[Rfam]
RNA sequence: GAGUUAUGGUAUGCCGCGAGGUUAAGCCGUGUGGUGGAGCCGGAGCGAAAGCGAGUCUGAAUAGGGCGUCGAGUGGUGUGUUGUAGACCCGAAGCGGGGUGAUCUACCCAUGUCCAGGGUGAAGCGGCUGUAAGAGGUCGUGGAGGCCCGAACCCACCUAGGUUGCAAACUGGGGGGAUGAGGUGUGGGUAGGGGUGAAAGGCCAAUCAAACUCCGUGAUAGCUGGUU
Numbered sequence: 001g002a003g004u005u006a007u008g009g010u011a012u013g014c015c016g017c018g019a020g021g022u023u024a025a026g027c028c029g030u031g032u033g034g035u036g037g038a039g040c041c042g043g044a045g046c047g048a049a050a051g052c053g054a055g056u057c058u059g060a061a062u063a064g065g066g067c068g069u070c071g072a073g074u075g076g077u078g079u080g081u082u083g084u085a086g087a088c089c090c091g092a093a094g095c096g097g098g099g100u101g102a103u104c105u106a107c108c109c110a111u112g113u114c115c116a117g118g119g120u121g122a123a124g125c126g127g128c129u130g131u132a133a134g135a136g137g138u139c140g141u142g143g144a145g146g147c148c149c150g151a152a153c154c155c156a157c158c159u160a161g162g163u164u165g166c167a168a169a170c171u172g173g174g175g176g177g178a179u180g181a182g183g184u185g186u187g188g189g190u191a192g193g194g195g196u197g198a199a200a201g202g203c204c205a206a207u208c209a210a211a212c213u214c215c216g217u218g219a220u221a222g223c224u225g226g227u228u
Stems, first nucleotide, its partner, number of pairs: 005085013020041004026035003045052002055067004088226002091223001095216006104192011115180001117149004124141006153177003157174005194204003
RNA: Bacterial large subunit ribosomal RNA, nucleotides 683 to 910